[Rfam]
RNA sequence: GCGUGGGUUGGCCCGCUGCACUGGAUCCAGUGGGCUGGGGGAUACCGUCACCUCAUUCCCCGCGGGUGACGGUCCGGUCCGGGAGGCGAAGCCCGCUUCCCGGACCGUC
Numbered sequence: 001g002c003g004u005g006g007g008u009u010g011g012c013c014c015g016c017u018g019c020a021c022u023g024g025a026u027c028c029a030g031u032g033g034g035c036u037g038g039g040g041g042a043u044a045c046c047g048u049c050a051c052c053u054c055a056u057u058c059c060c061c062g063c064g065g066g067u068g069a070c071g072g073u074c075c076g077g078u079c080c081g082g083g084a085g086g087c088g089a090a091g092c093c094c095g096c097u098u099c100c101c102g103g104a105c106c107g108u109c
Stems, first nucleotide, its partner, number of pairs: 001108002006075002009037010038043001045072009076106013